[Rfam]
RNA sequence: UAAUUAUCUUUGACAGUGUUCUAGAAUAAUUA
Numbered sequence: 001u002a003a004u005u006a007u008c009u010u011u012g013a014c015a016g017u018g019u020u021c022u023a024g025a026a027u028a029a030u031u032a
Base pairs, nucleotide, nucleotide: 001032002031003030004029005028006027007026009025010024011023012021013020014018
Dot-bracket structure: (((((((.((((((...).)).))))))))))